Small nucleolar RNA SNORA48: a 137-nucleotide RNA from Prolemur simus. From the family's description: The snoRNA ACA 48 has been identified to guide pseudouridylation of the residue U3797 in the 28S rRNA subunit. A search with the family's covariance model found it, with a score of 106 bits. For this family Rfam cites "Mapping to nucleotide resolution of pseudouridine residues in large subunit ribosomal RNAs from representative eukaryotes, prokaryotes, archaebacteria, mitochondria and chloroplasts" (Ofengand and Bakin, J Mol Biol, 1997). The source organism's lineage runs through Eukaryota, Craniata, Theria, Lemuriformes and Prolemur. The base pairs follow the family's consensus structure, which was predicted with RNAalifold. Rfam classes the family as an H/ACA-box small nucleolar RNA.
[Rfam]
RNA sequence: UGCUCGCCCGAGCUGAGUAGAGUGGCAUCAGGUUGGCGGUGCCCAUCGCCUAUCAGCAAGGGACAAAGCAAUCCCUUGUUUGUCCCAGCUUGACUUUUGGUCUGUGCCCACAUCUGGUCCAUGCCUUGGAAACACUG
Dot-bracket structure: ((.(..((....((((...(.(.((((((........))))))...).)...))))...))).))...........(.((((.........(.(...(((.(((.(......).))).))).).).)))).).....